Background
U1 spliceosomal RNA: a 163-nucleotide sequence from Homo sapiens. It is annotated as a spliceosomal small nuclear RNA. Rfam's curators write: U1 is a small nuclear RNA (snRNA) component of the spliceosome (involved in pre-mRNA splicing). The base pairs follow the family's consensus structure, which is taken from published work.
RNA sequence: AUACUUACCUUGUGGGGGAGAUAACAGGAUCACAGAAAUGAUUUUCCCAGGGCAAGCCUCAUCCAUUGCACUCUGGAUGGGCUGACCCUCACAAUUUCCCCAAACGUGGGACCUCAACUGCAUAAUUUGUGGUAAUGGGGGACUGUGUUUAUGCUUUCCCCUA
Numbered sequence: 001a002u003a004c005u006u007a008c009c010u011u012g013u014g015g016g017g018g019a020g021a022u023a024a025c026a027g028g029a030u031c032a033c034a035g036a037a038a039u040g041a042u043u044u045u046c047c048c049a050g051g052g053c054a055a056g057c058c059u060c061a062u063c064c065a066u067u068g069c070a071c072u073c074u075g076g077a078u079g080g081g082c083u084g085a086c087c088c089u090c091a092c093a094a095u096u097u098c099c100c101c102a103a104a105c106g107u108g109g110g111a112c113c114u115c116a117a118c119u120g121c122a123u124a125a126u127u128u129g130u131g132g133u134a135a136u137g138g139g140g141g142a143c144u145g146u147g148u149u150u151a152u153g154c155u156u157u158c159c160c161c162u163a
Base pairs, nucleotide, nucleotide: 012121013120014119015118016048017047018046019045020044021043023042025040026039050089051088052087056083058081060079061078062077063076064075094114096111097110099109100108137162138161139160140159141158142157145154146153147152